RNA sequence: UGACCGGGACGGCCCGGUCAUUCUUUCGCCAGGGGACGGCCUC
Dot-bracket structure: ((((((((....))))))))...........((((....))))